[Rfam]
RNA sequence: CUCUGGAGAGCCCGCUCUAUAAGCGGCACCGAAGGGAUAAAGAUCUCAGGUUGUGGAGACAGAG
Number, nucleotide and partner (000 for none) at each position: 001c064002u063003c062004u061005g060006g000007a000008g000009a000010g000011c000012c026013c025014g024015c023016u000017c000018u000019a000020u000021a000022a000023g015024c014025g013026g012027c000028a051029c050030c049031g047032a046033a000034g000035g045036g044037a000038u000039a000040a000041a000042g000043a000044u036045c035046u032047c031048a000049g030050g029051u028052u000053g000054u000055g000056g000057a000058g000059a000060c005061a004062g003063a002064g001
RNA: Glycine riboswitch aptamer